[Rfam]
RNA sequence: CCAAAAUUAGCCACUUGUUAUUUUCUAAUUGAUUAUUACUGUGUUAAAAUUUUAUAAUAACCAAUUAAAAAAUAACAACUAGCUAGUUUUGA
Numbered sequence: 001c002c003a004a005a006a007u008u009a010g011c012c013a014c015u016u017g018u019u020a021u022u023u024u025c026u027a028a029u030u031g032a033u034u035a036u037u038a039c040u041g042u043g044u045u046a047a048a049a050u051u052u053u054a055u056a057a058u059a060a061c062c063a064a065u066u067a068a069a070a071a072a073u074a075a076c077a078a079c080u081a082g083c084u085a086g087u088u089u090u091g092a
Stems, first nucleotide, its partner, number of pairs: 002091010013080001015078010026067006033060006
RNA: MIR6288 microRNA precursor family
Organism: Prunus armeniaca